Overview: Shown here is a 74-nucleotide sequence from Methylobacterium oryzihabitans, a member of the family "Makes More Granules Regulator RNA (mmgR)".

[Rfam]
RNA sequence: CCGUGUCGCCCUCCUUGGGCGUUUCCUCCCUAGACUUCGGGCCGCCCGCGAGGGCGGCCUUUUUUCUGCGCGCG
Numbered sequence: 001c002c003g004u005g006u007c008g009c010c011c012u013c014c015u016u017g018g019g020c021g022u023u024u025c026c027u028c029c030c031u032a033g034a035c036u037u038c039g040g041g042c043c044g045c046c047c048g049c050g051a052g053g054g055c056g057g058c059c060u061u062u063u064u065u066c067u068g069c070g071c072g073c074g
Stems, first nucleotide, its partner, number of pairs: 008020004040059008
Record summary
The source organism's lineage runs through Bacteria, Pseudomonadati, Alphaproteobacteria, Methylobacteriaceae and Methylobacterium. Its Rfam clan is "suhB sRNA clan".